[Rfam]
RNA: Bacterial large signal recognition particle RNA
RNA sequence: UCUUGACGAAGCCUGAGAAAACCAAUAUAAUAGAAAAGCAUGAAAUUGCCUUUUGAAAGCUCCGUCUGGUAUGGUUGGGGUCCUGCGCAAUAAGACUCUGUGAACCUUGUCAGGUCCGGAAGGAAGCAGCAAUAAGCGGAAGUUCUUAUGUGCCGCAGAAAAGCCUUUGCUAGCGCCUUGCGGAGCUUUCAAAGGGCAAUUUAUUUUUAUAGUCAGGG
Numbered sequence: 001u002c003u004u005g006a007c008g009a010a011g012c013c014u015g016a017g018a019a020a021a022c023c024a025a026u027a028u029a030a031u032a033g034a035a036a037a038g039c040a041u042g043a044a045a046u047u048g049c050c051u052u053u054u055g056a057a058a059g060c061u062c063c064g065u066c067u068g069g070u071a072u073g074g075u076u077g078g079g080g081u082c083c084u085g086c087g088c089a090a091u092a093a094g095a096c097u098c099u100g101u102g103a104a105c106c107u108u109g110u111c112a113g114g115u116c117c118g119g120a121a122g123g124a125a126g127c128a129g130c131a132a133u134a135a136g137c138g139g140a141a142g143u144u145c146u147u148a149u150g151u152g153c154c155g156c157a158g159a160a161a162a163g164c165c166u167u168u169g170c171u172a173g174c175g176c177c178u179u180g181c182g183g184a185g186c187u188u189u190c191a192a193a194g195g196g197c198a199a200u201u202u203a204u205u206u207u208u209a210u211a212g213u214c215a216g217g218g
Base pairs, nucleotide, nucleotide: 001218002217003216004215005214006213007212031211032210034208035207036206037205040204041203042202043201044200047198048197049196050195051194052193053192054191055190056189058188059187060185061184062183063182064181065180068177069176070175073171074170075169077167078166079165080164081163083158084157085156086155087154088150089149091148092147093146094145095144097140098139099138100137101136107132108131109130110129115124116123117122